RNA sequence: CCCGCAGUAGGACGGAAAGACCCUAUGCACCUUUACUGUAAGCUGAUAUUGUGUUCUGAUUAAUGAUGCUUAGCGUAGGUGGGAGACUUUGAAGGCGUGGCUUCGGUUGCGCCAGAGUCGCAAUGUGAAACACCACUCUUCGUUAAUUAGGAUUCUAACCCCAACCUGUUAGCCAGGUGGGGGACAGUGUCUGCGGGUCAGUUUGACUGGGGCGGUUUCCUCCCAAAGAGUAACGGAGGAGCGCUAAGGUACUCUCAGCAUGGUUGGCAACUAUGCGUCGAGCGUAUGGGUAGAAGAGUGCUUAACUGCGAGACCUACAAGUCGAGCAGAUACGAAAGUAGGCCCAAAUGAUCCGAUGGUUUAAUGUGGAAUUGCCAUCGCUCAACGGACAAAAGGUACGCUAGGGAUAACAGGCUGAUCGGAUCCAAGAGUUCAUAUCGACGAUCCGGUUUGGCACCUCGAUGUCGGCUCAUCGCAUCCUGGGGCUGGAGAAGGUCCCAAGGGUCCGGCUGUUCGCCGGUUAAAGCGGUACGCGAGCUGGGUUCAGAACGUCGUGAGACAGUUCGGUCCUUAUCCACUGUGGGCGCA
Numbered sequence: 001c002c003c004g005c006a007g008u009a010g011g012a013c014g015g016a017a018a019g020a021c022c023c024u025a026u027g028c029a030c031c032u033u034u035a036c037u038g039u040a041a042g043c044u045g046a047u048a049u050u051g052u053g054u055u056c057u058g059a060u061u062a063a064u065g066a067u068g069c070u071u072a073g074c075g076u077a078g079g080u081g082g083g084a085g086a087c088u089u090u091g092a093a094g095g096c097g098u099g100g101c102u103u104c105g106g107u108u109g110c111g112c113c114a115g116a117g118u119c120g121c122a123a124u125g126u127g128a129a130a131c132a133c134c135a136c137u138c139u140u141c142g143u144u145a146a147u148u149a150g151g152a153u154u155c156u157a158a159c160c161c162c163a164a165c166c167u168g169u170u171a172g173c174c175a176g177g178u179g180g181g182g183g184a185c186a187g188u189g190u191c192u193g194c195g196g197g198u199c200a201g202u203u204u205g206a207c208u209g210g211g212g213c214g215g216u217u218u219c220c221u222c223c224c225a226a227a228g229a230g231u232a233a234c235g236g237a238g239g240a241g242c243g244c245u246a247a248g249g250u251a252c253u254c255u256c257a258g259c260a261u262g263g264u265u266g267g268c269a270a271c272u273a274u275g276c277g278u279c280g281a282g283c284g285u286a287u288g289g290g291u292a293g294a295a296g297a298g299u300g301c302u303u304a305a306c307u308g309c310g311a312g313a314c315c316u317a318c319a320a321g322u323c324g325a326g327c328a329g330a331u332a333c334g335a336a337a338g339u340a341g342g343c344c345c346a347a348a349u350g351a352u353c354c355g356a357u358g359g360u361u362u363a364a365u366g367u368g369g370a371a372u373u374g375c376c377a378u379c380g381c382u383c384a385a386c387g388g389a390c391a392a393a394a395g396g397u398a399c400g401c402u403a404g405g406g407a408u409a410a411c412a413g414g415c416u417g418a419u420c421g422g423a424u425c426c427a428a429g430a431g432u433u434c435a436u437a438u439c440g441a442c443g444a445u446c447c448g449g450u451u452u453g454g455c456a457c458c459u460c461g462a463u464g465u466c467g468g469c470u471c472a473u474c475g476c477a478u479c480c481u482g483g484g485g486c487u488g489g490a491g492a493a494g495g496u497c498c499c500a501a502g503g504g505u506c507c508g509g510c511u512g513u514u515c516g517c518c519g520g521u522u523a524a525a526g527c528g529g530u531a532c533g534c535g536a537g538c539u540g541g542g543u544u545c546a547g548a549a550c551g552u553c554g555u556g557a558g559a560c561a562g563u564u565c566g567g568u569c570c571u572u573a574u575c576c577a578c579u580g581u582g583g584g585c586g587c588a
Base pairs, nucleotide, nucleotide: 001584002583003582004581005580006579007578008577010576011575012574014571015570022405023404024403025402027401028400029397030396031395032394033393035202036201037200038199042194043193045191046190047189048188051155053153054152055151056150057149058148059147060146061145062144063143064142065141066140068138078137079136080135081134082133085119086118087117094113095112096111097110098109099108100107101106159182160181161180164178165177166176167175168174205217206216207215208214218240219239220238221237222236223235241386243343244342249301250300251299252298253297254296255281256280258276259275260274261273262272263271282291283290306329307328308327309326312323313322314321331340332339333338354380355379356378357377358376359375360374363372414455415454416453418452419449420448421447422446423445424444425443429439430438466541467539468538469537470536471533472530473529474528475527476526479504480503482499483498484497485496486495487494506520507519508518509517510516547565548564549563550562551560552559553558
The record is a 588-nucleotide part of an RNA from Pedosphaera parvula, which matches "Bacterial large subunit ribosomal RNA" in Rfam. The sequence is in the family's curated seed alignment.